[Rfam]
RNA sequence: GCAGAGCUGUGUGCAUAGGUUUCCAUCUGUGUCUGGUGGUAUGGUCUAUUUGCGUUCUGCAUUUAGACUUUACUGCUCACACAAAAACUGUGGCCAAAGAUGAACUUGAGAUCAUAGUACUGGUCUAGUGAUUGUCGCAAAGACAAGCCUCCCACUGGCCAGCCUCCACACUCUCAAACAGUA
Numbered sequence: 001g002c003a004g005a006g007c008u009g010u011g012u013g014c015a016u017a018g019g020u021u022u023c024c025a026u027c028u029g030u031g032u033c034u035g036g037u038g039g040u041a042u043g044g045u046c047u048a049u050u051u052g053c054g055u056u057c058u059g060c061a062u063u064u065a066g067a068c069u070u071u072a073c074u075g076c077u078c079a080c081a082c083a084a085a086a087a088c089u090g091u092g093g094c095c096a097a098a099g100a101u102g103a104a105c106u107u108g109a110g111a112u113c114a115u116a117g118u119a120c121u122g123g124u125c126u127a128g129u130g131a132u133u134g135u136c137g138c139a140a141a142g143a144c145a146a147g148c149c150u151c152c153c154a155c156u157g158g159c160c161a162g163c164c165u166c167c168a169c170a171c172u173c174u175c176a177a178a179c180a181g182u183a
Base pairs, nucleotide, nucleotide: 013091014090015089030083031082032081034079035078036077037075038074039073040072041071044068045067046066047065048064051061052060053059107176108175109174110173111172120162121161122160123159124158125157127156128155129154130153132147133145134144135143136142
Record summary:
A member of the RNA family "Small nucleolar RNA SNORA23" from Eurystomus gularis, 183 nucleotides long. The family's consensus secondary structure was predicted with RNAalifold. Gene Ontology terms of the family: nucleolus and RNA processing. Rfam describes the family as follows. The members of this family belong to the H/ACA class of snoRNAs which are thought to guide the sites of modification of uridines to pseudouridines. This family includes human snoRNA ACA23 (SNORA23) and mouse snoMBI-1. ACA23 is predicted to guide the pseudouridylation of residue U3737 and U4331 of 28S rRNA. The organism belongs to Eurystomus, within Eukaryota.